c-di-GMP-I-GGC riboswitch aptamer: a 93-nucleotide RNA from Idiomarina sp. MD25a. On this family, see Weinberg et al., Proc Natl Acad Sci U S A 2017: "Bioinformatic analysis of riboswitch structures uncovers variant classes with altered ligand specificity". NCBI's taxonomy places the organism under Bacteria, Pseudomonadota, Alteromonadales, Idiomarinaceae, Idiomarina.

[Rfam]
RNA sequence: UGUUUAACUGCCAAACUCAUUGUGAAAUGAGGACGGAAAGCCACGGGUCUCAGAGUUUGUUGAGAUGUAUCUCAGAUAGCCGGGUUGCGAAAA
Dot-bracket structure: (.((......((...((((((....))))))..[))..((((.((((((.........................))).])))))))..))..)